[Rfam]
RNA sequence: UAGGGGAGACAGGGCUCAGGUCCCCUCCCUGAGCCCAGGGUAACCCUCACAAUAGAGGGGAA
Numbered sequence: 001u002a003g004g005g006g007a008g009a010c011a012g013g014g015c016u017c018a019g020g021u022c023c024c025c026u027c028c029c030u031g032a033g034c035c036c037a038g039g040g041u042a043a044c045c046c047u048c049a050c051a052a053u054a055g056a057g058g059g060g061a062a
Stems, first nucleotide, its partner, number of pairs: 008041001010039001012036004016031001019028001022060006

Record summary
Rfam assigns this 62-nucleotide sequence from Nannospalax galili to the family "Gag/pol translational readthrough site". The family has 8 seed sequences and 3,368 matches in Rfam 15.1. By type it is a cis-regulatory element. The literature on the family includes a 1994 paper in EMBO J by Wills et al., "Pseudoknot-dependent read-through of retroviral gag termination codons: importance of sequences in the spacer and loop 2". The base pairs follow the family's consensus structure, which is taken from published work. Lineage of the source: Eukaryota > Chordata > Vertebrata > Teleostomi > Nannospalax.